Nucleotides: 081
Base pairs, nucleotide, nucleotide: 002081004079005078006077
Number, partner (000 for none) and nucleotide at each position: 001000u002081g003000a004079u005078g006077a007000c008000a009000a010000a011000u012000u013000c014000u015000c016000c017000g018000g019000a020000a021000u022000c023000u024000c025000u026000g027000u028000a029000c030000a031000u032000c033000u034000u035000u036000g037000a038000u039000g040000a041000u042000c043000c044000u045000c046000c047000u048000u049000g050000a051000a052000c053000c054000c055000u056000u057000u058000g059000u060000g061000c062000u063000g064000a065000u066000g067000a068000c069000u070000g071000c072000u073000c074000u075000g076000c077006u078005c079004g080000a081002c

The record is an 81-nucleotide RNA from Pangasianodon hypophthalmus, which matches "Small nucleolar RNA MBII-202" in Rfam. The source organism's lineage runs through Eukaryota, Deuterostomia, Craniata, Otomorpha and Pangasianodon. On this family, see Huttenhofer et al., EMBO J 2001: "RNomics: an experimental approach that identifies 201 candidates for novel, small, non-messenger RNAs in mouse".